[Rfam]
RNA: glmS glucosamine-6-phosphate activated ribozyme aptamer
RNA sequence: UAGCAAAGCUAAGCGCCAUGCACCUUUUACCGGGGACGUGAACAGCAGGAAGGUCUGCUGCCGGUGGAAAGGUUAACGAGGUGGAGAGAGAAUCGAGAAAUUCGGCGGGUGCUCUCCCAUGCUGUCCGGGCGUGUUACAUACUGGAAAAUAUGCGGGUAACUGCAAAACAAAGCCAGCGUGACCGGAUGAA
Numbered sequence: 001u002a003g004c005a006a007a008g009c010u011a012a013g014c015g016c017c018a019u020g021c022a023c024c025u026u027u028u029a030c031c032g033g034g035g036a037c038g039u040g041a042a043c044a045g046c047a048g049g050a051a052g053g054u055c056u057g058c059u060g061c062c063g064g065u066g067g068a069a070a071g072g073u074u075a076a077c078g079a080g081g082u083g084g085a086g087a088g089a090g091a092a093u094c095g096a097g098a099a100a101u102u103c104g105g106c107g108g109g110u111g112c113u114c115u116c117c118c119a120u121g122c123u124g125u126c127c128g129g130g131c132g133u134g135u136u137a138c139a140u141a142c143u144g145g146a147a148a149a150u151a152u153g154c155g156g157g158u159a160a161c162u163g164c165a166a167a168a169c170a171a172a173g174c175c176a177g178c179g180u181g182a183c184c185g186g187a188u189g190a191a
Stems, first nucleotide, its partner, number of pairs: 022073007083117005093105004118134005138181003142177003152165005